[Rfam]
This 56-nucleotide RNA from Streptomyces sp. YIM 130001 belongs to the Rfam family "L17-Actino-Proteobacteria ribosomal protein leader". By type it is a cis-regulatory leader. Taxonomically the source falls in Streptomyces (Bacteria, Actinomycetota, Actinomycetes, Kitasatosporales). On this family, see Eckert and Weinberg, BMC Microbiol 2020: "Discovery of 20 novel ribosomal leader candidates in bacteria and archaea".
RNA sequence: CCGGCGGACAACUGUUCGUCGGGAACUGACCCCGGUACCUGAUACGGCCGGGGCAG
Numbered sequence: 001c002c003g004g005c006g007g008a009c010a011a012c013u014g015u016u017c018g019u020c021g022g023g024a025a026c027u028g029a030c031c032c033c034g035g036u037a038c039c040u041g042a043u044a045c046g047g048c049c050g051g052g053g054c055a056g
Stems, first nucleotide, its partner, number of pairs: 001022009026056003030053007